[Rfam]
RNA: Small Cajal body specific RNA 16
Organism: Anolis carolinensis
RNA sequence: GUGGGCUGGGAAAUGGUUACUGUGUAGCUGGACUUCCUGAGACCCAGCCUUAUACCUGCUAACCUGAACCUUGCCCUAGAUAAAAAAGAAAACUGGCACACUCCUUCCUGGGGUCUGCCCUAUGCAGUAGCAGGUGUGAACAUUCUACCAGUAUUUUGAUGAUCAUGUAUGAUACUGCAUACACGU
Numbered sequence: 001g002u003g004g005g006c007u008g009g010g011a012a013a014u015g016g017u018u019a020c021u022g023u024g025u026a027g028c029u030g031g032a033c034u035u036c037c038u039g040a041g042a043c044c045c046a047g048c049c050u051u052a053u054a055c056c057u058g059c060u061a062a063c064c065u066g067a068a069c070c071u072u073g074c075c076c077u078a079g080a081u082a083a084a085a086a087a088g089a090a091a092a093c094u095g096g097c098a099c100a101c102u103c104c105u106u107c108c109u110g111g112g113g114u115c116u117g118c119c120c121u122a123u124g125c126a127g128u129a130g131c132a133g134g135u136g137u138g139a140a141c142a143u144u145c146u147a148c149c150a151g152u153a154u155u156u157u158g159a160u161g162a163u164c165a166u167g168u169a170u171g172a173u174a175c176u177g178c179a180u181a182c183a184c185g186u
Base pairs, nucleotide, nucleotide: 003076004075005074006073008071009070010069015064016063017062018061020058022056024055025054027048028047029046030045093112094111095109096108098106121181122180123179124178125177126176127175128174129173131171132170137165138164139163141161142160143159144158147156